[Rfam]
RNA: Small nucleolar RNA snR35
Organism: Millerozyma farinosa
RNA sequence: AAUUCUUGUUUCUCGUGCGGCGCCAUGACUAUAACCGUGUUACUUGCCUUAUUCGCUUCAUACGAUAUGGUAGGUGUCAAGUCACUGGCUAGAGAAACUAGGCCAUCUUAGUGCUCUUUCGAUGAUUUGUUAAAGAUACAUUAGAAGAAAUUUUAAUGGAUCACCAGGAAUCAUCGAGGGCCGGUAGGUCAAACAUUC
Numbered sequence: 001a002a003u004u005c006u007u008g009u010u011u012c013u014c015g016u017g018c019g020g021c022g023c024c025a026u027g028a029c030u031a032u033a034a035c036c037g038u039g040u041u042a043c044u045u046g047c048c049u050u051a052u053u054c055g056c057u058u059c060a061u062a063c064g065a066u067a068u069g070g071u072a073g074g075u076g077u078c079a080a081g082u083c084a085c086u087g088g089c090u091a092g093a094g095a096a097a098c099u100a101g102g103c104c105a106u107c108u109u110a111g112u113g114c115u116c117u118u119u120c121g122a123u124g125a126u127u128u129g130u131u132a133a134a135g136a137u138a139c140a141u142u143a144g145a146a147g148a149a150a151u152u153u154u155a156a157u158g159g160a161u162c163a164c165c166a167g168g169a170a171u172c173a174u175c176g177a178g179g180g181c182c183g184g185u186a187g188g189u190c191a192a193a194c195a196u197u198c
Stems, first nucleotide, its partner, number of pairs: 014020001022089003026084004042075007050067004107188004113181005120176008137163001140154001